[Rfam]
RNA sequence: UGUGCGGGCCGGGCCCCUCUGGCGGUUGGACAUGUCCAGCCGUGAUGUCGGACCGCAUCG
Numbered sequence: 001u002g003u004g005c006g007g008g009c010c011g012g013g014c015c016c017c018u019c020u021g022g023c024g025g026u027u028g029g030a031c032a033u034g035u036c037c038a039g040c041c042g043u044g045a046u047g048u049c050g051g052a053c054c055g056c057a058u059c060g
Stems, first nucleotide, its partner, number of pairs: 006054002009051004022043008

This 60-nucleotide RNA from Sphingobium wenxiniae belongs to the Rfam family "terC RNA".
The organism belongs to Sphingobium wenxiniae, within Bacteria.
A search with the family's covariance model found it, with a score of 64 bits.